SAM riboswitch aptamer (S box leader): a 104-nucleotide RNA from Sporosarcina sp. Te-1. Its family is annotated with regulation of gene expression in the Gene Ontology. Lineage of the source: Bacteria > Bacillota > Caryophanales > Caryophanaceae > Sporosarcina. It scores 98 bits against the family's covariance model. Pairs were carried over by alignment from the consensus structure, which is taken from published work.
[Rfam]
RNA sequence: UUCUUAUCAAGAGAAGCUGAGGGACUGGCCCGUUGAAGCUUCAGCAACCAGCCAUUUUUGGUCAGGUGCUAAUUCCAGCAGGCAUGAUGCCUGAAAGAUGAGAA
Numbered sequence: 001u002u003c004u005u006a007u008c009a010a011g012a013g014a015a016g017c018u019g020a021g022g023g024a025c026u027g028g029c030c031c032g033u034u035g036a037a038g039c040u041u042c043a044g045c046a047a048c049c050a051g052c053c054a055u056u057u058u059u060g061g062u063c064a065g066g067u068g069c070u071a072a073u074u075c076c077a078g079c080a081g082g083c084a085u086g087a088u089g090c091c092u093g094a095a096a097g098a099u100g101a102g103a104a
Stems, first nucleotide, its partner, number of pairs: 001104008013042005021031003025078004043070004048066002050062001052060001074096001079093006